Shown here is a 109-nucleotide RNA sequence from Ciceribacter sp. L1K22, a member of the family "rpsB sRNA". NCBI's taxonomy places the organism under Bacteria, Pseudomonadati, Alphaproteobacteria, Rhizobiaceae, Ciceribacter. Rfam classes the family as a small RNA.
[Rfam]
RNA sequence: CACACGCGUGGCUUGGGAUUGUCCGGGAGAAAUCCGGUCCGUUCCGCCCGGUGGCACGCCGAAAGGGGUGCUGUUCGCCACGCGGGGGUUCAACCGGAAAAGGAGAAUG
Numbered sequence: 001c002a003c004a005c006g007c008g009u010g011g012c013u014u015g016g017g018a019u020u021g022u023c024c025g026g027g028a029g030a031a032a033u034c035c036g037g038u039c040c041g042u043u044c045c046g047c048c049c050g051g052u053g054g055c056a057c058g059c060c061g062a063a064a065g066g067g068g069u070g071c072u073g074u075u076c077g078c079c080a081c082g083c084g085g086g087g088g089u090u091c092a093a094c095c096g097g098a099a100a101a102g103g104a105g106a107a108u109g
Stems, first nucleotide, its partner, number of pairs: 001087001003085001005084007016045002024036002027034001053072005